The family of this 103-nucleotide sequence from Capsicum annuum is "MIR162_1 microRNA precursor family". A reference for the family is Reinhart et al. (2002), "MicroRNAs in plants", Genes Dev. The family has 36 seed sequences and 270 matches in Rfam 15.1. The match comes from Rfam's covariance-model search (85 bits). The family's consensus secondary structure was predicted with RNAalifold.
[Rfam]
RNA sequence: GUUGAGAGAUCUGGAGGCAGCGGUUCAUCGGUCUGUUCCCCGUAAAGCACAAAAUAAAGCAGCAGGAAGUGAUCGAUAAACCUCUGCAUCCAGCGCUCUUAAA
Numbered sequence: 001g002u003u004g005a006g007a008g009a010u011c012u013g014g015a016g017g018c019a020g021c022g023g024u025u026c027a028u029c030g031g032u033c034u035g036u037u038c039c040c041c042g043u044a045a046a047g048c049a050c051a052a053a054a055u056a057a058a059g060c061a062g063c064a065g066g067a068a069g070u071g072a073u074c075g076a077u078a079a080a081c082c083u084c085u086g087c088a089u090c091c092a093g094c095g096c097u098c099u100u101a102a103a
Stems, first nucleotide, its partner, number of pairs: 013091003018086003022082004027077007036068003